The record is a 170-nucleotide RNA sequence from Nonomuraea dietziae, which matches "c-di-AMP riboswitch aptamer (ydaO/yuaA leader)" in Rfam. The organism belongs to Nonomuraea, within Bacteria.
[Rfam]
RNA sequence: GCCGGUCGGCCGCCGAAUCCCAUCGGUGACGGGCACGUCCCGUCAUGGGAACCGGGGACCCACUUGGUGUGGAGCGAUCCACGCCCGGGGUGAAUCCACCAUGCGUGGUGGUAGGGCGACUCCUGGCCCGAACCCGUCAGCUAACCCGGUAGGCGGUCAAGGAGAAAGGU
Numbered sequence: 001g002c003c004g005g006u007c008g009g010c011c012g013c014c015g016a017a018u019c020c021c022a023u024c025g026g027u028g029a030c031g032g033g034c035a036c037g038u039c040c041c042g043u044c045a046u047g048g049g050a051a052c053c054g055g056g057g058a059c060c061c062a063c064u065u066g067g068u069g070u071g072g073a074g075c076g077a078u079c080c081a082c083g084c085c086c087g088g089g090g091u092g093a094a095u096c097c098a099c100c101a102u103g104c105g106u107g108g109u110g111g112u113a114g115g116g117c118g119a120c121u122c123c124u125g126g127c128c129c130g131a132a133c134c135c136g137u138c139a140g141c142u143a144a145c146c147c148g149g150u151a152g153g154c155g156g157u158c159a160a161g162g163a164g165a166a167a168g169g170u
Base pairs, nucleotide, nucleotide: 011155012154013153014152018050019049020048021047022046023045051150052149053148054147055146056145061087088135089134090133096111097110098109099108114129115128116127117126